The family of this 104-nucleotide sequence from Lathyrus oleraceus is "Small nucleolar RNA Z279/snoR105/snoR108". This family includes the plant snoRNAs known as Z279, snoR105 and snoR108. Lineage of the source: Eukaryota > Tracheophyta > eudicotyledons > Pentapetalae > Lathyrus. The family's consensus secondary structure was predicted with PFOLD. The literature on the family includes a 2002 paper in Curr Biol by Marker et al., "Experimental RNomics: identification of 140 candidates for small non-messenger RNAs in the plant Arabidopsis thaliana". The family is grouped with related families in Rfam's "snoU13 clan".

RNA sequence: GGGAAAUGAGGAGUGGUCGAGUCUCGCACUUAUAAUGUGAGUUGGGUGUUCGCCCCAAGCCUGGUUACGACAAUUGGGCACUCUCAAUUAAUCAAUCUGAUCCC
Numbered sequence: 001g002g003g004a005a006a007u008g009a010g011g012a013g014u015g016g017u018c019g020a021g022u023c024u025c026g027c028a029c030u031u032a033u034a035a036u037g038u039g040a041g042u043u044g045g046g047u048g049u050u051c052g053c054c055c056c057a058a059g060c061c062u063g064g065u066u067a068c069g070a071c072a073a074u075u076g077g078g079c080a081c082u083c084u085c086a087a088u089u090a091a092u093c094a095a096u097c098u099g100a101u102c103c104c
Stems, first nucleotide, its partner, number of pairs: 001104004014095001016093001023041005044083007062076004